[Rfam]
RNA sequence: AACUGUAAAAGGCAAACUUUUCCGAAAGGGAAGGACGCAAAGCCGUGAGCCUAAUCGCUUGUCAUGCGAAUGGUCGUCAGGUUGCCAGG
Numbered sequence: 001a002a003c004u005g006u007a008a009a010a011g012g013c014a015a016a017c018u019u020u021u022c023c024g025a026a027a028g029g030g031a032a033g034g035a036c037g038c039a040a041a042g043c044c045g046u047g048a049g050c051c052u053a054a055u056c057g058c059u060u061g062u063c064a065u066g067c068g069a070a071u072g073g074u075c076g077u078c079a080g081g082u083u084g085c086c087a088g089g
Stems, first nucleotide, its partner, number of pairs: 012038002017033004022029002041083004046079003049074003056068003
c-di-GMP-I riboswitch aptamer: an 89-nucleotide sequence from Bacillus sp. Y1. The base pairs follow the family's consensus structure, which is taken from published work.